[Rfam]
RNA: Small nucleolar RNA SNORD45
Organism: Phaethon lepturus
RNA sequence: GGUCUGUGGAGUUUUGGCAUGUACUGAGUGUAAAUUUGAAGAUUAUUAGUUUAGCUCUAGAAUUACUGUAAGACCUG
Numbered sequence: 001g002g003u004c005u006g007u008g009g010a011g012u013u014u015u016g017g018c019a020u021g022u023a024c025u026g027a028g029u030g031u032a033a034a035u036u037u038g039a040a041g042a043u044u045a046u047u048a049g050u051u052u053a054g055c056u057c058u059a060g061a062a063u064u065a066c067u068g069u070a071a072g073a074c075c076u077g
Stems, first nucleotide, its partner, number of pairs: 001075004